[Rfam]
RNA sequence: UACCUGGUGAGGACAAUUUAUCCUUGCUCUCUGUGUCCCCAGUGACUGUAGGAGACACCAUAGCUGCCCUUGGCCAGAGCCAGUUGGGUAGUGUCUAGGGGUCUGAGGGGCUA
Number, nucleotide and partner (000 for none) at each position: 001u113002a112003c109004c108005u107006g000007g000008u000009g000010a000011g000012g000013a000014c000015a000016a000017u000018u000019u000020a000021u000022c000023c000024u000025u000026g000027c000028u000029c000030u000031c000032u000033g000034u000035g000036u000037c000038c000039c000040c000041a000042g000043u000044g000045a000046c000047u000048g000049u000050a000051g000052g000053a000054g000055a000056c000057a000058c000059c000060a000061u000062a000063g000064c000065u000066g000067c000068c000069c000070u000071u000072g000073g000074c000075c000076a000077g000078a000079g000080c000081c000082a000083g000084u000085u000086g000087g000088g000089u000090a000091g000092u000093g000094u000095c000096u000097a000098g000099g000100g000101g000102u000103c000104u000105g000106a000107g005108g004109g003110g000111c000112u002113a001
This 113-nucleotide RNA sequence from Nannospalax galili belongs to the Rfam family "Small nucleolar RNA SNORD23".
A search with the family's covariance model found it, with a score of 68 bits.
NCBI's taxonomy places the organism under Eukaryota, Sarcopterygii, Amniota, Muroidea, Nannospalax.
Rfam classes the family as a C/D-box small nucleolar RNA.
The literature on the family includes a 2002 paper in Mol Cell Biol by Galardi et al., "Purified box C/D snoRNPs are able to reproduce site-specific 2'-O-methylation of target RNA in vitro".
The pairing is the family consensus, mapped onto this sequence.